[Rfam]
RNA sequence: CGCCUUGCUCAUUGCCACCUGGUGAUGUGCAUGCUCCCUCUCGGCUACCAGAAAUGGACUGCAUGAGAGACGACAGCGCAAUUUUUGAGGAUGUCUUUUGUUUGCGCGCUCCUUGCCCUCCUUCGUUGUUCUUGGUGGCCCGUUGGAGAGGAAACAAAAACUAGUCCUUGUU
Numbered sequence: 001c002g003c004c005u006u007g008c009u010c011a012u013u014g015c016c017a018c019c020u021g022g023u024g025a026u027g028u029g030c031a032u033g034c035u036c037c038c039u040c041u042c043g044g045c046u047a048c049c050a051g052a053a054a055u056g057g058a059c060u061g062c063a064u065g066a067g068a069g070a071c072g073a074c075a076g077c078g079c080a081a082u083u084u085u086u087g088a089g090g091a092u093g094u095c096u097u098u099u100g101u102u103u104g105c106g107c108g109c110u111c112c113u114u115g116c117c118c119u120c121c122u123u124c125g126u127u128g129u130u131c132u133u134g135g136u137g138g139c140c141c142g143u144u145g146g147a148g149a150g151g152a153a154a155c156a157a158a159a160a161c162u163a164g165u166c167c168u169u170g171u172u
Stems, first nucleotide, its partner, number of pairs: 008029001010027002014023003037072001038069006044062002050055001090166003093161002096159006116151002118148004125144001127142002131137001